[Rfam]
Annotation:
Eukaryotic large subunit ribosomal RNA: a 484-nucleotide part of an RNA from Strongylocentrotus purpuratus. Pairs were carried over by alignment from the consensus structure, which is taken from published work. Rfam's curators put it in the seed alignment. The organism belongs to Strongylocentrotus, within Eukaryota.
RNA sequence: GGUAGUAGCAAAUACUCAAGCGAGAUCCUUGAGGGCCGAGUGUGGAGAAGGGUUCCAUGUGAACAGCCGUUGCACAUGGGUCAGUCGAUCCUAAGCCCUAGGGUAGUUCCGCUCCGAGCGGAGGCGUCGGCCCGGAUCUUUCGGGAAUCGGGUCACGCCCCUUGGGCGAAAGGGAAUCGGGUCAAUAUUCCCGAACCCGAAGGCGGAGCCCGCCGUCCUUGCGGCGGCCGAACGCUGCGAAGCGAACGAGCCCGGAGACACUGGCCGGGGCCCCGGGAAGAGUUGUCUUUUCUUGUUAAGGAGCGGGAUCCCUGGAAUCGGUUCGACCGGAGAGAGGGUCUGCGGCUCCGUAGAGCGCCGCGUCUACGGCGGCGUCCGGUGCGCUCCGGCUGGUCCUUGAAAAUCCGGGGGAAGUGUUGGGACUCUCGCCUCGGGUCGUACCCAUGACCGCAGCCGGUCUCCAAGGUGAAUAGCCUCUGGCCGA
Numbered sequence: 001g002g003u004a005g006u007a008g009c010a011a012a013u014a015c016u017c018a019a020g021c022g023a024g025a026u027c028c029u030u031g032a033g034g035g036c037c038g039a040g041u042g043u044g045g046a047g048a049a050g051g052g053u054u055c056c057a058u059g060u061g062a063a064c065a066g067c068c069g070u071u072g073c074a075c076a077u078g079g080g081u082c083a084g085u086c087g088a089u090c091c092u093a094a095g096c097c098c099u100a101g102g103g104u105a106g107u108u109c110c111g112c113u114c115c116g117a118g119c120g121g122a123g124g125c126g127u128c129g130g131c132c133c134g135g136a137u138c139u140u141u142c143g144g145g146a147a148u149c150g151g152g153u154c155a156c157g158c159c160c161c162u163u164g165g166g167c168g169a170a171a172g173g174g175a176a177u178c179g180g181g182u183c184a185a186u187a188u189u190c191c192c193g194a195a196c197c198c199g200a201a202g203g204c205g206g207a208g209c210c211c212g213c214c215g216u217c218c219u220u221g222c223g224g225c226g227g228c229c230g231a232a233c234g235c236u237g238c239g240a241a242g243c244g245a246a247c248g249a250g251c252c253c254g255g256a257g258a259c260a261c262u263g264g265c266c267g268g269g270g271c272c273c274c275g276g277g278a279a280g281a282g283u284u285g286u287c288u289u290u291u292c293u294u295g296u297u298a299a300g301g302a303g304c305g306g307g308a309u310c311c312c313u314g315g316a317a318u319c320g321g322u323u324c325g326a327c328c329g330g331a332g333a334g335a336g337g338g339u340c341u342g343c344g345g346c347u348c349c350g351u352a353g354a355g356c357g358c359c360g361c362g363u364c365u366a367c368g369g370c371g372g373c374g375u376c377c378g379g380u381g382c383g384c385u386c387c388g389g390c391u392g393g394u395c396c397u398u399g400a401a402a403a404u405c406c407g408g409g410g411g412a413a414g415u416g417u418u419g420g421g422a423c424u425c426u427c428g429c430c431u432c433g434g435g436u437c438g439u440a441c442c443c444a445u446g447a448c449c450g451c452a453g454c455c456g457g458u459c460u461c462c463a464a465g466g467u468g469a470a471u472a473g474c475c476u477c478u479g480g481c482c483g484a
Base pairs, nucleotide, nucleotide: 015033016032017031018030019029020028034482035481036480037479044462045461046460047459050442051441055079056078057077058076059075060074064072065071086438087437088436090173091172095167096166099111101110102109103108120160121159177194178193179192180191181190197434198433199432200431223430224429225428226427227426229421233244234243235242236241251409252408253407254406255405256404260394261393262392263391265389266388267387268386269385270384271383273379274378275377276296278294279293280292281291300349301348302347303346304345310338311337312336313335318330319329320328321327356374357373358372359371360370361369448457449456464476465475466474467473